Overview:
Shown here is a 92-nucleotide sequence from Geobacter sp. OR-1, a member of the family "SAM riboswitch aptamer (S box leader)". It scores 72 bits against the family's covariance model. Rfam links the family to the GO term regulation of gene expression. The base pairs follow the family's consensus structure, which is taken from published work.
[Rfam]
RNA sequence: AGCUUAUCAAGAGUGGUGGAGGGACAGGCCCUGCGAAACCACAGCAACCGGUCCGGAAACGGGCGCCAGGUGCUAAUUCCUAGAGAUGAGCC
Numbered sequence: 001a002g003c004u005u006a007u008c009a010a011g012a013g014u015g016g017u018g019g020a021g022g023g024a025c026a027g028g029c030c031c032u033g034c035g036a037a038a039c040c041a042c043a044g045c046a047a048c049c050g051g052u053c054c055g056g057a058a059a060c061g062g063g064c065g066c067c068a069g070g071u072g073c074u075a076a077u078u079c080c081u082a083g084a085g086a087u088g089a090g091c092c
Stems, first nucleotide, its partner, number of pairs: 002091007013042005021031003026081003043074004048070002050067003078084001